[Rfam]
RNA sequence: GGCUGACCGAUCUCUCCUGGUGUUCAGAGUCGCUAUCUGUCUAGCACCACCUGAAAUCGGUUAUGA
Numbered sequence: 001g002g003c004u005g006a007c008c009g010a011u012c013u014c015u016c017c018u019g020g021u022g023u024u025c026a027g028a029g030u031c032g033c034u035a036u037c038u039g040u041c042u043a044g045c046a047c048c049a050c051c052u053g054a055a056a057u058c059g060g061u062u063a064u065g066a
Stems, first nucleotide, its partner, number of pairs: 004063001005061001007060005013054002018049005026042003
RNA: mir-29 microRNA precursor family
Organism: Erinaceus europaeus